[Rfam]
RNA sequence: ACGUUCCUCACUGGAGAGAGACUCAUCUGAGCGUGAGUCCACCGAAGGGGCAAGCGGCGUUCUGCGCAUGGACUCACACGCGCGGACACCGCCAAUCUCUCAGGUAAAGCGGACAGCGAGGGCAUC
Numbered sequence: 001a002c003g004u005u006c007c008u009c010a011c012u013g014g015a016g017a018g019a020g021a022c023u024c025a026u027c028u029g030a031g032c033g034u035g036a037g038u039c040c041a042c043c044g045a046a047g048g049g050g051c052a053a054g055c056g057g058c059g060u061u062c063u064g065c066g067c068a069u070g071g072a073c074u075c076a077c078a079c080g081c082g083c084g085g086a087c088a089c090c091g092c093c094a095a096u097c098u099c100u101c102a103g104g105u106a107a108a109g110c111g112g113a114c115a116g117c118g119a120g121g122g123c124a125u126c
Stems, first nucleotide, its partner, number of pairs: 006121004011116003020039004041105003044101002048099003054092004
About this RNA: Glycine riboswitch aptamer: a 126-nucleotide sequence from Rhizobacter sp. Taxonomically the source falls in Rhizobacter (Bacteria, Pseudomonadota, Betaproteobacteria, Burkholderiales). Rfam's curators write: This family represents the bacterial glycine riboswitch. A search with the family's covariance model found it, with a score of 58 bits.